Shown here is a 90-nucleotide RNA sequence from Nezara viridula, a member of the family "Small nucleolar RNA Me28S-Gm3255".
RNA sequence: UACUAAUGAUGAUAAUAGAACCACUUAUUUCUGACACCUCUUAUGAACCAUUGUGAUUUGGUUUUAUAUCUGAUAAAUUCAACAAAAGUU
Numbered sequence: 001u002a003c004u005a006a007u008g009a010u011g012a013u014a015a016u017a018g019a020a021c022c023a024c025u026u027a028u029u030u031c032u033g034a035c036a037c038c039u040c041u042u043a044u045g046a047a048c049c050a051u052u053g054u055g056a057u058u059u060g061g062u063u064u065u066a067u068a069u070c071u072g073a074u075a076a077a078u079u080c081a082a083c084a085a086a087a088g089u090u
Stems, first nucleotide, its partner, number of pairs: 002089002043054004